Mycobacterium sRNA Ms_IGR-8: a 63-nucleotide RNA sequence from Mycolicibacterium rhodesiae.

RNA sequence: CUUCCUUUCCAUCACGAGUGUGAAGCUACUGCGGAAAUUCAGCCGAGAAUUCGCAGUAGCUUC
Numbered sequence: 001c002u003u004c005c006u007u008u009c010c011a012u013c014a015c016g017a018g019u020g021u022g023a024a025g026c027u028a029c030u031g032c033g034g035a036a037a038u039u040c041a042g043c044c045g046a047g048a049a050u051u052c053g054c055a056g057u058a059g060c061u062u063c
Stems, first nucleotide, its partner, number of pairs: 022063013039045001
Dot-bracket structure: .....................(((((((((((((....(.....).....)))))))))))))

It is annotated as a small RNA.